Shown here is a 104-nucleotide RNA sequence from Melghirimyces thermohalophilus, a member of the family "SAM riboswitch aptamer (S box leader)". From the family's description: The SAM riboswitch is found upstream of a number of genes which code for proteins involved in methionine or cysteine biosynthesis in Gram-positive bacteria. The SAM riboswitch acts at the level of transcription termination control. The predicted structure consists of a complex stem-loop region followed by a single stem loop terminator region. An alternative and mutually exclusive form involves bases in the 3' segment of helix 1 with those in the 5' region of helix 5 to form a structure termed the anti-terminator form. It scores 78 bits against the family's covariance model. The literature on the family includes a 1998 paper in Mol Microbiol by Grundy and Henkin, "The S box regulon: a new global transcription termination control system for methionine and cysteine biosynthesis genes in gram-positive bacteria". NCBI's taxonomy places the organism under Bacteria, Bacillota, Bacilli, Thermoactinomycetaceae, Melghirimyces. Its family is annotated with regulation of gene expression in the Gene Ontology.

[Rfam]
RNA sequence: AUCUUAUCCAGAGCGGCGGAGGGACCUGGCCCGAUGAAGUCCGGCAACCUGCAGCUGUAAGGUGCCACAUCCAGCAAAAUGGGAGCCAUUUUGGAAGAUAAGUA
Number, nucleotide and partner (000 for none) at each position: 001a000002u000003c102004u101005u100006a099007u098008c097009c000010a000011g000012a000013g042014c000015g041016g040017c039018g000019g000020a000021g032022g031023g030024a000025c000026c074027u073028g072029g071030c023031c022032c021033g000034a000035u000036g000037a000038a000039g017040u016041c015042c013043g066044g065045c064046a063047a000048c062049c061050u059051g058052c057053a000054g000055c000056u000057g052058u051059a050060a000061g049062g048063u046064g045065c044066c043067a000068c000069a000070u096071c029072c028073a027074g026075c093076a092077a091078a090079a089080u088081g000082g000083g000084a000085g000086c000087c000088a080089u079090u078091u077092u076093g075094g000095a000096a070097g008098a007099u006100a005101a004102g003103u000104a000